RNA sequence: GUAAUUAUGGUGAUGAUACAAUUAUUCGUGGACUAGAGUUUCAGAUCUGGGAUUCUUCUCCCAGAAGUUGAAGAGUAACCCUUGGCUGUCUGAGUAAUUAC
Dot-bracket structure: ((((((((..............................((((...((((((........))))).)...))))....................))))))))

Shown here is a 101-nucleotide sequence from Arabis alpina, a member of the family "Small nucleolar RNA Z157/R69/R10". NCBI's taxonomy places the organism under Eukaryota, Streptophyta, Embryophyta, Euphyllophyta, Arabis. On this family, see Chen et al., Nucleic Acids Res 2003: "The high diversity of snoRNAs in plants: identification and comparative study of 120 snoRNA genes from Oryza sativa". Its family is annotated with RNA processing and nucleolus in the Gene Ontology. Its Rfam clan is "SNORD52 clan".